Overview
The family of this 73-nucleotide RNA sequence from Rhodohalobacter sp. SW132 is "tRNA". Rfam links the family to the GO term triplet codon-amino acid adaptor activity.

RNA sequence: GCGGGCGUAACUCAAUUGGUAGAGUGUCACCCUUCCAAGGUGAAUGUUGCCAGUUCGACUCUGGUCGCCCGCU
Numbered sequence: 001g002c003g004g005g006c007g008u009a010a011c012u013c014a015a016u017u018g019g020u021a022g023a024g025u026g027u028c029a030c031c032c033u034u035c036c037a038a039g040g041u042g043a044a045u046g047u048u049g050c051c052a053g054u055u056c057g058a059c060u061c062u063g064g065u066c067g068c069c070c071g072c073u
Stems, first nucleotide, its partner, number of pairs: 001072007010025004027043005049065005
The organism belongs to Rhodohalobacter, within Bacteria.